The record is a 136-nucleotide RNA from Heterocephalus glaber, which matches "U8 small nucleolar RNA" in Rfam. Gene Ontology terms of the family: nucleolus and RNA processing. The match comes from Rfam's covariance-model search (87 bits). The base pairs follow the family's consensus structure, which is taken from published work. The family has 55 seed sequences and 1,597 matches in Rfam 15.1. The organism belongs to Heterocephalus, within Eukaryota.

RNA sequence: UGGUUAGGUGCAGUCAUUCGUACCUGUUCCUCCUUCCAGAGGGCAGAUCAGAACAUGAUCAUUGGAGUUCUCACUGUAUGUGAUUAAUAUCUCUGCAUACUCAGGAACUGCAGUACCCUGACGGCUCCUGUCUGAU
Dot-bracket structure: .......................(((.(((((......)))))))).............................(.((((....).))).).....(..(((((...........)))))..)............